[Rfam]
RNA sequence: CCACGGCCCGGUUCAAGUAAUCCAGGAUAGGCUGUUACCACCCCCGGCCUAUUCGCGAUUACUUGUCCCGGGAGGCGG
Number, nucleotide and partner (000 for none) at each position: 001c000002c077003a000004c075005g000006g000007c072008c071009c070010g069011g068012u000013u000014c065015a064016a063017g062018u061019a060020a059021u058022c057023c000024a000025g054026g053027a052028u051029a050030g049031g048032c047033u046034g000035u000036u000037a000038c000039c000040a000041c000042c000043c000044c000045c000046g033047g032048c031049c030050u029051a028052u027053u026054c025055g000056c000057g022058a021059u020060u019061a018062c017063u016064u015065g014066u000067c000068c011069c010070g009071g008072g007073a000074g000075g004076c000077g002078g000

A member of the RNA family "mir-26 microRNA precursor family" from Crypturellus soui, 78 nucleotides long. The source organism's lineage runs through Eukaryota, Vertebrata, Dipnotetrapodomorpha, Archosauria and Crypturellus. The family's consensus secondary structure was predicted with RNAalifold. A search with the family's covariance model found it, with a score of 75 bits.